[Rfam]
RNA sequence: UUUACAACUUCUAAGGUAAAUUUGAAGGGCGUUUUAUCCAGUAAUGGAUAAAAGGAUGACUGGGUGAAUUGCUGGAACUUCCUAAAGCUCUAUCAACCACAACGUAACUGGAAACGGUAAGCGUGAUGGUCUGAAAAUGAUGGAGAUGACACAAUGGACAAUCAGCAGCCAAGCUCCUUUGAGGAAACUCUGGAGAAGGUUCAACGACUAGGAUAUACAGUCUAAGGCUAAAGCUAUGACCAUGAAAUCCGUAGGGUGGCAGCAGCCAUUCGAAGUGCCCAGCCCCUUAUUAAGUUAAGGGUGAAGAUAUAGUCUAUUCUAUGCUCGAAAGACAUAG
Dot-bracket structure: .....(((.(((..............))).)))....(((....)))............[[[[.[[...((((((....(((.........................................................................)))...))))))((.....((...............)).....))...(.(((((.................................................................]].]]]].((((((......))))))........)))))).....(((.((....)))))..